Shown here is a 331-nucleotide sequence from Ovis aries, a member of the family "7SK RNA". 7SK was discovered as an abundant small nuclear RNA in the mid-70s but a possible function has only recently been suggested. It scores 236 bits against the family's covariance model. The family is grouped with related families in Rfam's "7SK clan". NCBI's taxonomy places the organism under Eukaryota, Amniota, Laurasiatheria, Artiodactyla, Ovis.

RNA sequence: AGAUGUGAGGGUGAUCUGGCUGUGACCUCUGUCACCCCACUGGUCUUCAGGGUUGACUGGCUGAUCUAGCUGGCUAAACAGGUAUUCCCUUUUCUGCCUCAUGGCUCCACAUGCAUCCCUCCUGGAGCUGCAAGCUUGGUGGAAGAGGAUGACCUUCCACAGUAGGGGAAGGCGCUUCCUCAGUCAGGGGUACACGAGAAGCUGUUCUUCCCUGCUAGAACCUCCAAACAAGCUCUCAAGGUCCCCUCGUAGAAGAGGGUAGGCUAAUCAAGCUUCCAUGACUCCAGACACACCCAAAUGAGGUGCUACAUGUGGCAGUCAGCCUUUCUUU
Numbered sequence: 001a002g003a004u005g006u007g008a009g010g011g012u013g014a015u016c017u018g019g020c021u022g023u024g025a026c027c028u029c030u031g032u033c034a035c036c037c038c039a040c041u042g043g044u045c046u047u048c049a050g051g052g053u054u055g056a057c058u059g060g061c062u063g064a065u066c067u068a069g070c071u072g073g074c075u076a077a078a079c080a081g082g083u084a085u086u087c088c089c090u091u092u093u094c095u096g097c098c099u100c101a102u103g104g105c106u107c108c109a110c111a112u113g114c115a116u117c118c119c120u121c122c123u124g125g126a127g128c129u130g131c132a133a134g135c136u137u138g139g140u141g142g143a144a145g146a147g148g149a150u151g152a153c154c155u156u157c158c159a160c161a162g163u164a165g166g167g168g169a170a171g172g173c174g175c176u177u178c179c180u181c182a183g184u185c186a187g188g189g190g191u192a193c194a195c196g197a198g199a200a201g202c203u204g205u206u207c208u209u210c211c212c213u214g215c216u217a218g219a220a221c222c223u224c225c226a227a228a229c230a231a232g233c234u235c236u237c238a239a240g241g242u243c244c245c246c247u248c249g250u251a252g253a254a255g256a257g258g259g260u261a262g263g264c265u266a267a268u269c270a271a272g273c274u275u276c277c278a279u280g281a282c283u284c285c286a287g288a289c290a291c292a293c294c295c296a297a298a299u300g301a302g303g304u305g306c307u308a309c310a311u312g313u314g315g316c317a318g319u320c321a322g323c324c325u326u327u328c329u330u331u
Stems, first nucleotide, its partner, number of pairs: 002107002005102006013093002018089002024086002028082005035073002037069001039067001042066004047060002116171001118168004122139004127135002140162001142160001147158003201273003208266001211263005222255002225252001228250002231247002296331003300326005305319003309315001